Notes:
The record is a 46-nucleotide RNA sequence from Lacipirellula parvula, which matches "Acido-Lenti-1 RNA" in Rfam.
RNA sequence: CCGGGGGCUUACGCCCCCGGCUACAUCAUGUCGCGGCGCUGCCGCU
Number, nucleotide and partner (000 for none) at each position: 001c020002c019003g018004g017005g016006g015007g014008c013009u000010u000011a000012c000013g008014c007015c006016c005017c004018c003019g002020g001021c000022u000023a000024c000025a000026u000027c000028a000029u000030g000031u000032c000033g045034c044035g043036g042037c041038g000039c000040u000041g037042c036043c035044g034045c033046u000